[Rfam]
RNA sequence: ACAAGAAUGACAGGGCAAUUCUCCUUUGGCAAAGAUAAUAUAAUGCCAUGCAAAACAUAUAUAUAUAUAUAUAGGGUUUGCAUAUAUUCAUUUGCCAAAGGAGAAUUGCACUGUUAUUUCUUA
Numbered sequence: 001a002c003a004a005g006a007a008u009g010a011c012a013g014g015g016c017a018a019u020u021c022u023c024c025u026u027u028g029g030c031a032a033a034g035a036u037a038a039u040a041u042a043a044u045g046c047c048a049u050g051c052a053a054a055a056c057a058u059a060u061a062u063a064u065a066u067a068u069a070u071a072u073a074g075g076g077u078u079u080g081c082a083u084a085u086a087u088u089c090a091u092u093u094g095c096c097a098a099a100g101g102a103g104a105a106u107u108g109c110a111c112u113g114u115u116a117u118u119u120c121u122u123a
Stems, first nucleotide, its partner, number of pairs: 005119005011113003015109005021103004027097007

The family of this 123-nucleotide sequence from Solanum commersonii is "mir-399 microRNA precursor family". Gene Ontology terms of the family: RISC complex and miRNA-mediated post-transcriptional gene silencing. The base pairs follow the family's consensus structure, which was predicted with PFOLD. The organism belongs to Solanum, within Eukaryota. mir-399 was identified in both Arabidopsis thaliana and Oryza sativa computationally and was later experimentally verified. mir-399 is thought to target mRNAs coding for a phosphatase transporter.